Rfam assigns this 127-nucleotide RNA sequence from Fervidicella metallireducens to the family "c-di-AMP riboswitch aptamer (ydaO/yuaA leader)". The match comes from Rfam's covariance-model search (89 bits). Its family is annotated with regulation of gene expression and cyclic-di-AMP binding in the Gene Ontology.

RNA sequence: AUAAAAUUUUAGCCGAAUCCAGAGAUGGUACGGAGGAACCAAUGUUGGGGUGAAUCUAGUAACAACUAGUAGGGAAGACCUUCUCCCGAACCGUCAGCUAACUUCGGAGGCAGGAAGGGGAAUUACA
Numbered sequence: 001a002u003a004a005a006a007u008u009u010u011a012g013c014c015g016a017a018u019c020c021a022g023a024g025a026u027g028g029u030a031c032g033g034a035g036g037a038a039c040c041a042a043u044g045u046u047g048g049g050g051u052g053a054a055u056c057u058a059g060u061a062a063c064a065a066c067u068a069g070u071a072g073g074g075a076a077g078a079c080c081u082u083c084u085c086c087c088g089a090a091c092c093g094u095c096a097g098c099u100a101a102c103u104u105c106g107g108a109g110g111c112a113g114g115a116a117g118g119g120g121a122a123u124u125a126c127a
Base pairs, nucleotide, nucleotide: 012111013110014109019028020027031106032105033104034103035102040047041046048092049091056069057068058067059066072087073086074085075084